Rfam assigns this 105-nucleotide RNA from Bacillus gobiensis to the family "S10-Clostridia ribosomal protein leader".
[Rfam]
RNA sequence: UGACUGCGAUGAAGUGAGAGGUUGCUGACACACCAGGCCGCUUUGCCAUGGCAAGGUGAGUGAGGUUUUCUCACGGAGAACUGUCUAACUUAAAGUAGGCGAAAA
Dot-bracket structure: .............(((.((((...((.((..............................)).))..)))).))).......(.((...(((.....))).)).).
Pairs were carried over by alignment from the consensus structure, which is taken from published work. A search with the family's covariance model found it, with a score of 41 bits. The family's RNA type in Rfam is cis-regulatory leader. Taxonomically the source falls in Bacillus (Bacteria, Bacillota, Bacilli, Caryophanales).